RNA sequence: GCGGUACCGGUUCACGGCCCAGCAAUGCGCCGACCCGGCGACC
Number, nucleotide and partner (000 for none) at each position: 001g000002c000003g043004g042005u041006a000007c038008c037009g036010g035011u000012u000013c000014a000015c032016g031017g030018c029019c000020c027021a026022g000023c000024a000025a000026u021027g020028c000029g018030c017031c016032g015033a000034c000035c010036c009037g008038g007039c000040g000041a005042c004043c003
RNA: L31-Actinobacteria ribosomal protein leader
Organism: Glycomyces arizonensis